[Rfam]
RNA sequence: GCACCUAAUCUUUCCCAUUCCUUGCUGUGCAGUGUGAGUCUGGGGACGCAUGGUGCUGACAGAAAAGCAGAGCAAAUCCAGACAAGUGAUUCUUGGUUGAGUAAUUGUCUCUACACCUCUGCAACAGUU
Numbered sequence: 001g002c003a004c005c006u007a008a009u010c011u012u013u014c015c016c017a018u019u020c021c022u023u024g025c026u027g028u029g030c031a032g033u034g035u036g037a038g039u040c041u042g043g044g045g046a047c048g049c050a051u052g053g054u055g056c057u058g059a060c061a062g063a064a065a066a067g068c069a070g071a072g073c074a075a076a077u078c079c080a081g082a083c084a085a086g087u088g089a090u091u092c093u094u095g096g097u098u099g100a101g102u103a104a105u106u107g108u109c110u111c112u113a114c115a116c117c118u119c120u121g122c123a124a125c126a127g128u129u
Stems, first nucleotide, its partner, number of pairs: 001056005012046006020038001067122006080110006087103001093101002
Shown here is a 129-nucleotide RNA sequence from Meleagris gallopavo, a member of the family "Small nucleolar RNA SNORA55". NCBI's taxonomy places the organism under Eukaryota, Metazoa, Eumetazoa, Neognathae, Meleagris. Rfam describes the family as follows. ACA55 is a member of the H/ACA class of snoRNA that guide the sites of modification of uridines to pseudouridines. The base pairs follow the family's consensus structure, which was predicted with PFOLD.